[Rfam]
RNA sequence: GCCGGGAGUGGACGAAUACAAGACCCGAAAGGGAAAUAUGUCCGGCCCUCUGCGUGGGGUUUUCUUAACUCCCGGCACCCCAGC
Number, nucleotide and partner (000 for none) at each position: 001g076002c075003c074004g073005g072006g071007a070008g069009u068010g043011g042012a041013c040014g000015a037016a000017u000018a000019c000020a000021a000022g000023a000024c033025c032026c031027g000028a000029a000030a000031g026032g025033g024034a000035a000036a000037u015038a000039u000040g013041u012042c011043c010044g061045g060046c059047c058048c057049u056050c000051u000052g000053c000054g000055u000056g049057g048058g047059g046060u045061u044062u000063u000064c000065u000066u000067a000068a009069c008070u007071c006072c005073c004074g003075g002076c001077a000078c000079c000080c000081c000082a000083g000084c000